[Rfam]
RNA sequence: AGUUACCUUUAAAUUAGUCCAGAGAGGCUAUAAGGUCAGAUUUUAAAAUAUACUGCAUUUAUGUAUAAUCAUCAUAGUAUGGUUGUAUUUGUAUAUGUUAAGCUUCUUGCCUUAUGGCAGGAAGCUUUUUUAGC
Numbered sequence: 001a002g003u004u005a006c007c008u009u010u011a012a013a014u015u016a017g018u019c020c021a022g023a024g025a026g027g028c029u030a031u032a033a034g035g036u037c038a039g040a041u042u043u044u045a046a047a048a049u050a051u052a053c054u055g056c057a058u059u060u061a062u063g064u065a066u067a068a069u070c071a072u073c074a075u076a077g078u079a080u081g082g083u084u085g086u087a088u089u090u091g092u093a094u095a096u097g098u099u100a101a102g103c104u105u106c107u108u109g110c111c112u113u114a115u116g117g118c119a120g121g122a123a124g125c126u127u128u129u130u131u132a133g134c
Stems, first nucleotide, its partner, number of pairs: 003038001005036005015030005060095006067088001070085002073082001100127012
About this RNA: Rfam assigns this 134-nucleotide RNA from Ruminiclostridium cellulolyticum to the family "PyrR binding site". The family's RNA type in Rfam is cis-regulatory element.